A member of the RNA family "Aggregatibacter sRNA 22" from Actinobacillus succinogenes, 97 nucleotides long. The family's consensus secondary structure was predicted with RNAfold. The match comes from Rfam's covariance-model search (45 bits).
RNA sequence: GUGCGGUCGCAAAAGCUAAGUUUUUUGAACGUCGGCUCCCCCCACGGCUCCGAAGGGACGAACAAUCGCCAACCGGCGAUUAAGCGCAAAAAGCAAU
Numbered sequence: 001g002u003g004c005g006g007u008c009g010c011a012a013a014a015g016c017u018a019a020g021u022u023u024u025u026u027g028a029a030c031g032u033c034g035g036c037u038c039c040c041c042c043c044a045c046g047g048c049u050c051c052g053a054a055g056g057g058a059c060g061a062a063c064a065a066u067c068g069c070c071a072a073c074c075g076g077c078g079a080u081u082a083a084g085c086g087c088a089a090a091a092a093g094c095a096a097u
Stems, first nucleotide, its partner, number of pairs: 010027005015021002030046003034042002047059001049057003064081007086094002
Dot-bracket structure: .........(((((((...)).)))))..(((.((.....)).)))(.(((...))).)....(((((((....)))))))....((.....))...

Rfam classes the family as a small RNA.